[Rfam]
RNA: ZMP/ZTP riboswitch aptamer (pfl RNA motif)
RNA sequence: GCGGCGGUCCGCGACUGGCGUCGGGUGGAGCACCACCGGGAAACGGUCCGCCGGGCUCGACUCCGUCGCCGUACGCCUGGGUGCCGGGG
Dot-bracket structure: ..(((((.(((...(([[[[[...((((....))))..))...))).)))))..............((((..]]]]]..))))......